[Rfam]
RNA sequence: UUUCCAGUCAGGCUCUGGCUAUACUCCAGUACCCAGCAGUUCCUGGGUAUAGUCAGAGGCUGACUGCAAA
Numbered sequence: 001u002u003u004c005c006a007g008u009c010a011g012g013c014u015c016u017g018g019c020u021a022u023a024c025u026c027c028a029g030u031a032c033c034c035a036g037c038a039g040u041u042c043c044u045g046g047g048u049a050u051a052g053u054c055a056g057a058g059g060c061u062g063a064c065u066g067c068a069a070a
Stems, first nucleotide, its partner, number of pairs: 007064003011060001013058002016055008027039001029037002

This 70-nucleotide sequence from Mesocricetus auratus belongs to the Rfam family "mir-344 microRNA precursor family".
Rfam 15.1 lists 339 matches to the family in 9 species.
It scores 53 bits against the family's covariance model.